[Rfam]
RNA: Small nucleolar RNA SNORD93
Organism: Galemys pyrenaicus
RNA sequence: UGGCCAAAGAUGAGAAAUCUAUUCUGACUGGAAACACUUCUGUUCUGAUGGGUUAAAGGAUUUACCUGAGGCCA
Numbered sequence: 001u002g003g004c005c006a007a008a009g010a011u012g013a014g015a016a017a018u019c020u021a022u023u024c025u026g027a028c029u030g031g032a033a034a035c036a037c038u039u040c041u042g043u044u045c046u047g048a049u050g051g052g053u054u055a056a057a058g059g060a061u062u063u064a065c066c067u068g069a070g071g072c073c074a
Stems, first nucleotide, its partner, number of pairs: 002073004